[Rfam]
RNA sequence: UUUUGCCUGUGCCUGGAUGGUGUUCAGCACCAAGGACAGGUAUGUUCGCCUGUGCCUGGAUGAUGUUCAGCACCGGGGACAAGUAGGUAACCCU
Number, nucleotide and partner (000 for none) at each position: 001u000002u000003u000004u085005g084006c083007c000008u081009g080010u079011g000012c000013c000014u000015g000016g000017a000018u075019g074020g073021u072022g071023u070024u069025c000026a067027g066028c065029a064030c000031c062032a061033a000034g055035g000036a053037c052038a051039g050040g049041u048042a000043u000044g000045u000046u000047c000048g041049c040050c039051u038052g037053u036054g000055c034056c000057u000058g000059g000060a000061u032062g031063a000064u029065g028066u027067u026068c000069a024070g023071c022072a021073c020074c019075g018076g000077g000078g000079a010080c009081a008082a000083g006084u005085a004086g000087g000088u000089a000090a000091c000092c000093c000094u000

This 94-nucleotide sequence from Branchiostoma lanceolatum belongs to the Rfam family "mir-2060 microRNA precursor family". Lineage of the source: Eukaryota > Opisthokonta > Metazoa > Branchiostomatidae > Branchiostoma.